RNA sequence: UAUCUGAAUCAUGCUUAUUAUUAACUCAGUGAAUAAAGCGUGUCAGCGCUCUGAGACGCACAGUAAUUUCCGUUUGGUUGAAUAGGGAUACCUAUUCGAUUGGGCGGCUAUGGUAUAGUGAUAUACCGUAGGGAGGCGGAAACCACCAACAAAAAUGUGUGUUGCCAAGAGUUGUCGCUGCAAAAUGCACGGAACUUUCGGGCGUAGCAAUAGACGCUCCCAGUGGGAGAAUAAGCCUAAGGGGUUAUGGUGUGGCAACCAUAAUGACAGAGGUAGGCCAACAAUACGCUCCGUCUUGAUGCAGAAGAAAUUCUGCUAUAACGAAAGUCGCCGGUUAAAGUAGCCGUAUGACGGGUUUGAAGAUGAUCUUUUCUAUAUCAAAUAUGGAUUUUGUAAAAGAAAAUUUCUGAAAGAACGGUGAAAUUUGCGGGUAAGCAUUCCCGCACAGGUUUAUGUACGCAGCAUGGCUUAUCCUGUUGCGAUACUGGGGUAAGAAGUUAGGGGUCGCUCCCCGAAGCUCAGACUUAUCUUCCUGAUGGCAGAAAAUUGUAAGAAGACAAUGGAGGUAGGGUGAAGACCCAGUGAUAGGUAUGAUUGAGC
Numbered sequence: 001u002a003u004c005u006g007a008a009u010c011a012u013g014c015u016u017a018u019u020a021u022u023a024a025c026u027c028a029g030u031g032a033a034u035a036a037a038g039c040g041u042g043u044c045a046g047c048g049c050u051c052u053g054a055g056a057c058g059c060a061c062a063g064u065a066a067u068u069u070c071c072g073u074u075u076g077g078u079u080g081a082a083u084a085g086g087g088a089u090a091c092c093u094a095u096u097c098g099a100u101u102g103g104g105c106g107g108c109u110a111u112g113g114u115a116u117a118g119u120g121a122u123a124u125a126c127c128g129u130a131g132g133g134a135g136g137c138g139g140a141a142a143c144c145a146c147c148a149a150c151a152a153a154a155a156u157g158u159g160u161g162u163u164g165c166c167a168a169g170a171g172u173u174g175u176c177g178c179u180g181c182a183a184a185a186u187g188c189a190c191g192g193a194a195c196u197u198u199c200g201g202g203c204g205u206a207g208c209a210a211u212a213g214a215c216g217c218u219c220c221c222a223g224u225g226g227g228a229g230a231a232u233a234a235g236c237c238u239a240a241g242g243g244g245u246u247a248u249g250g251u252g253u254g255g256c257a258a259c260c261a262u263a264a265u266g267a268c269a270g271a272g273g274u275a276g277g278c279c280a281a282c283a284a285u286a287c288g289c290u291c292c293g294u295c296u297u298g299a300u301g302c303a304g305a306a307g308a309a310a311u312u313c314u315g316c317u318a319u320a321a322c323g324a325a326a327g328u329c330g331c332c333g334g335u336u337a338a339a340g341u342a343g344c345c346g347u348a349u350g351a352c353g354g355g356u357u358u359g360a361a362g363a364u365g366a367u368c369u370u371u372u373c374u375a376u377a378u379c380a381a382a383u384a385u386g387g388a389u390u391u392u393g394u395a396a397a398a399g400a401a402a403a404u405u406u407c408u409g410a411a412a413g414a415a416c417g418g419u420g421a422a423a424u425u426u427g428c429g430g431g432u433a434a435g436c437a438u439u440c441c442c443g444c445a446c447a448g449g450u451u452u453a454u455g456u457a458c459g460c461a462g463c464a465u466g467g468c469u470u471a472u473c474c475u476g477u478u479g480c481g482a483u484a485c486u487g488g489g490g491u492a493a494g495a496a497g498u499u500a501g502g503g504g505u506c507g508c509u510c511c512c513c514g515a516a517g518c519u520c521a522g523a524c525u526u527a528u529c530u531u532c533c534u535g536a537u538g539g540c541a542g543a544a545a546a547u548u549g550u551a552a553g554a555a556g557a558c559a560a561u562g563g564a565g566g567u568a569g570g571g572u573g574a575a576g577a578c579c580c581a582g583u584g585a586u587a588g589g590u591a592u593g594a595u596u597g598a599g600c
Stems, first nucleotide, its partner, number of pairs: 008596001015589002019585001022582001025055005037050005057161006071106006078099009108131010135147002138144002173560001183548001190333003194328007201290006217229004235274004244265003248261003253280004291354005301316005337424001343419005406523004430442002446535003449485001487532004493526002497519001499516001501513004569580004